[Rfam]
mir-8517 microRNA precursor family: a 108-nucleotide RNA sequence from Plutella xylostella. Its family is annotated with miRNA-mediated post-transcriptional gene silencing and RISC complex in the Gene Ontology. Lineage of the source: Eukaryota > Ecdysozoa > Altocrustacea > Neoptera > Plutella.
RNA sequence: UUAUAGGAUGUUUUAGCUAUUGAACUGUUUUGUCACUCUCUGACCGAGAAGAAUUUUUUCCUUGACAGAGAGGGACAAAACAGUUAAAUAGCUAAAACGUCUUAUAAC
Numbered sequence: 001u002u003a004u005a006g007g008a009u010g011u012u013u014u015a016g017c018u019a020u021u022g023a024a025c026u027g028u029u030u031u032g033u034c035a036c037u038c039u040c041u042g043a044c045c046g047a048g049a050a051g052a053a054u055u056u057u058u059u060c061c062u063u064g065a066c067a068g069a070g071a072g073g074g075a076c077a078a079a080a081c082a083g084u085u086a087a088a089u090a091g092c093u094a095a096a097a098c099g100u101c102u103u104a105u106a107a108c
Stems, first nucleotide, its partner, number of pairs: 001107006011097011023085006029069007049059004